[Rfam]
RNA sequence: UUAUAAUAGAAGUGAAGUUUUUAUAUAAAUUCAUGAAAUGGAUGAAUGUUUCUACCAGCUACCUAUUAGUUGACUAUAAAGACCUGUAAAAGGGAU
Numbered sequence: 001u002u003a004u005a006a007u008a009g010a011a012g013u014g015a016a017g018u019u020u021u022u023a024u025a026u027a028a029a030u031u032c033a034u035g036a037a038a039u040g041g042a043u044g045a046a047u048g049u050u051u052c053u054a055c056c057a058g059c060u061a062c063c064u065a066u067u068a069g070u071u072g073a074c075u076a077u078a079a080a081g082a083c084c085u086g087u088a089a090a091a092g093g094g095a096u
Stems, first nucleotide, its partner, number of pairs: 018082008029047006056072006
Dot-bracket structure: .................((((((((...((((((.......))))))........((((((.....))))))..))))))))..............